Record summary:
Bacterial large subunit ribosomal RNA: a 556-nucleotide part of an RNA from Clostridium fungisolvens. It scores 2940 bits against the family's covariance model.
RNA sequence: UACAAAGGGCGCAUGGUGAAUGCCUUGGCAUCAAGAGCCGAAGAAGGACGUGACAAGCUGCGAUAAGCUUUGGGUAGGCGCAAAUAGCCUGUGAUCCAAAGAUCUCCGAAUGAGGAAACUCACGUAGGUAACCCUACGUAUCCUAUAGUGAAUACAUAGCUAUAGGAGGGUAAACCUAGGGAACUGAAACAUCUAAGUACCUAGAGGAAGAGAAAGAAAAAUCGAUUCCGUCAGUAGCGGCGAGCGAAAUCGGAAGAGCCCAAACCAAAGAUUUAUCUUUGGGGUUGCGGACAGAACAUAACAUUGGUGGCUAUUGUAAUUGAAGAUAUCUGGAAAGAUACACCGUAGAAGGUAAUAGUCCUGUAAGUGAAACAAGAAGACCAUAGUUCUGCUCCAGAGUACCACGAGACACGUGAAACCUUGUGGGAAGCAGGGAGGACCACCUCCCAAGGCUAAAUACUACUUGAUGACCGAUAGUGAAGAAGUACCGUGAGGGAAAGGUGAAAAGAACCCCGGGAGGGGAGUGAAAUAGAACCUGAAACCGUGUGCCUACAAC
Numbered sequence: 001u002a003c004a005a006a007g008g009g010c011g012c013a014u015g016g017u018g019a020a021u022g023c024c025u026u027g028g029c030a031u032c033a034a035g036a037g038c039c040g041a042a043g044a045a046g047g048a049c050g051u052g053a054c055a056a057g058c059u060g061c062g063a064u065a066a067g068c069u070u071u072g073g074g075u076a077g078g079c080g081c082a083a084a085u086a087g088c089c090u091g092u093g094a095u096c097c098a099a100a101g102a103u104c105u106c107c108g109a110a111u112g113a114g115g116a117a118a119c120u121c122a123c124g125u126a127g128g129u130a131a132c133c134c135u136a137c138g139u140a141u142c143c144u145a146u147a148g149u150g151a152a153u154a155c156a157u158a159g160c161u162a163u164a165g166g167a168g169g170g171u172a173a174a175c176c177u178a179g180g181g182a183a184c185u186g187a188a189a190c191a192u193c194u195a196a197g198u199a200c201c202u203a204g205a206g207g208a209a210g211a212g213a214a215a216g217a218a219a220a221a222u223c224g225a226u227u228c229c230g231u232c233a234g235u236a237g238c239g240g241c242g243a244g245c246g247a248a249a250u251c252g253g254a255a256g257a258g259c260c261c262a263a264a265c266c267a268a269a270g271a272u273u274u275a276u277c278u279u280u281g282g283g284g285u286u287g288c289g290g291a292c293a294g295a296a297c298a299u300a301a302c303a304u305u306g307g308u309g310g311c312u313a314u315u316g317u318a319a320u321u322g323a324a325g326a327u328a329u330c331u332g333g334a335a336a337g338a339u340a341c342a343c344c345g346u347a348g349a350a351g352g353u354a355a356u357a358g359u360c361c362u363g364u365a366a367g368u369g370a371a372a373c374a375a376g377a378a379g380a381c382c383a384u385a386g387u388u389c390u391g392c393u394c395c396a397g398a399g400u401a402c403c404a405c406g407a408g409a410c411a412c413g414u415g416a417a418a419c420c421u422u423g424u425g426g427g428a429a430g431c432a433g434g435g436a437g438g439a440c441c442a443c444c445u446c447c448c449a450a451g452g453c454u455a456a457a458u459a460c461u462a463c464u465u466g467a468u469g470a471c472c473g474a475u476a477g478u479g480a481a482g483a484a485g486u487a488c489c490g491u492g493a494g495g496g497a498a499a500g501g502u503g504a505a506a507a508g509a510a511c512c513c514c515g516g517g518a519g520g521g522g523a524g525u526g527a528a529a530u531a532g533a534a535c536c537u538g539a540a541a542c543c544g545u546g547u548g549c550c551u552a553c554a555a556c
Stems, first nucleotide, its partner, number of pairs: 007551010022536001023501002027472002029469007036461002038170002046107003049062003068101007077089003112121003122139007141167009175206001176204005186193002216223002226457001227254004237245002257454004265282007289395002293390005305383004312377001314375004319368003325341001327340004344348001350362003402426007433448005488495002511522004